Description:
Rfam assigns this 130-nucleotide RNA from Sclerurus mexicanus to the family "Small nucleolar RNA SNORA8". The match comes from Rfam's covariance-model search (48 bits). The organism belongs to Sclerurus, within Eukaryota. Rfam links the family to the GO terms RNA processing and nucleolus. About the family: ACA8 is a member of the H/ACA class of snoRNA that guide the sites of modification of uridines to pseudouridines.
[Rfam]
RNA sequence: UGCUCUGUAUGGUAUCUGCACCUAGCAGCAUUCUCCUGAUGGGGUGUUUAGAAAGCAGUGCUACAGCAGAGCAGUGUUUGGCAUCUCUGGCUUCCAUUCUGAGUCUGGUCCUUUUUUCACUGAAACAGUC
Numbered sequence: 001u002g003c004u005c006u007g008u009a010u011g012g013u014a015u016c017u018g019c020a021c022c023u024a025g026c027a028g029c030a031u032u033c034u035c036c037u038g039a040u041g042g043g044g045u046g047u048u049u050a051g052a053a054a055g056c057a058g059u060g061c062u063a064c065a066g067c068a069g070a071g072c073a074g075u076g077u078u079u080g081g082c083a084u085c086u087c088u089g090g091c092u093u094c095c096a097u098u099c100u101g102a103g104u105c106u107g108g109u110c111c112u113u114u115u116u117u118c119a120c121u122g123a124a125a126c127a128g129u130c
Stems, first nucleotide, its partner, number of pairs: 002061002005058003015054001017052001018047006024040001026038003064122003069117002071114001073112002080105003084101001